[Rfam]
RNA: c-di-AMP riboswitch aptamer (ydaO/yuaA leader)
RNA sequence: UGGUAAAGUCAGCCUAAUCCAAGGUUUUAUCUGAACAGAUGAAAUCGGAGCGGAGGAACCAACUCUUGGGGCUUAUCUCUAUCUCUUAUCAUUCUUAGAAAAGAGGCAUCGAGAAGGGCAUCUCUCAGCCCUAGCCCGUCAGCUAACUUCGCAGGCAUUGAGAGGAGACUUA
Numbered sequence: 001u002g003g004u005a006a007a008g009u010c011a012g013c014c015u016a017a018u019c020c021a022a023g024g025u026u027u028u029a030u031c032u033g034a035a036c037a038g039a040u041g042a043a044a045u046c047g048g049a050g051c052g053g054a055g056g057a058a059c060c061a062a063c064u065c066u067u068g069g070g071g072c073u074u075a076u077c078u079c080u081a082u083c084u085c086u087u088a089u090c091a092u093u094c095u096u097a098g099a100a101a102a103g104a105g106g107c108a109u110c111g112a113g114a115a116g117g118g119c120a121u122c123u124c125u126c127a128g129c130c131c132u133a134g135c136c137c138g139u140c141a142g143c144u145a146a147c148u149u150c151g152c153a154g155g156c157a158u159u160g161a162g163a164g165g166a167g168a169c170u171u172a
Stems, first nucleotide, its partner, number of pairs: 012156003018049003050152006060068002069137003077113003116131004